Background
Small nucleolar RNA SNORA11: a 130-nucleotide RNA sequence from Amphiprion percula. The family's RNA type in Rfam is H/ACA-box small nucleolar RNA.
Nucleotides: 130
Base pairs, nucleotide, nucleotide: 002057003056004055005054006053007052008051013046014045015044016043017042018041019040020039021038022037023036024035072123073122074121079116080115084112086106088104090102091101092100093099
Number, partner (000 for none) and nucleotide at each position: 001000c002057u003056g004055g005054u006053g007052u008051g009000u010000u011000c012000a013046g014045a015044g016043c017042c018041g019040g020039a021038c022037u023036c024035u025000g026000u027000c028000a029000g030000a031000c032000c033000a034000u035024a036023g037022a038021g039020u040019u041018c042017g043016g044015u045014u046013u047000a048000u049000a050000c051008c052007a053006c054005a055004c056003c057002a058000c059000a060000g061000a062000u063000c064000a065000g066000c067000u068000g069000g070000a071000g072123g073122a074121g075000a076000a077000c078000c079116a080115g081000a082000a083000c084112c085000a086106g087000a088104a089000c090102u091101c092100u093099g094000a095000a096000g097000a098000a099093c100092a101091g102090a103000g104088u105000c106086u107000g108000g109000a110000a111000g112084g113000a114000a115080c116079u117000c118000u119000c120000u121074c122073u123072c124000c125000a126000c127000a128000c129000a130000u
Rfam links the family to the GO terms RNA processing and nucleolus. Rfam 15.1 lists 2,014 matches to the family in 202 species. NCBI's taxonomy places the organism under Eukaryota, Euteleostomi, Actinopterygii, Percomorphaceae, Amphiprion.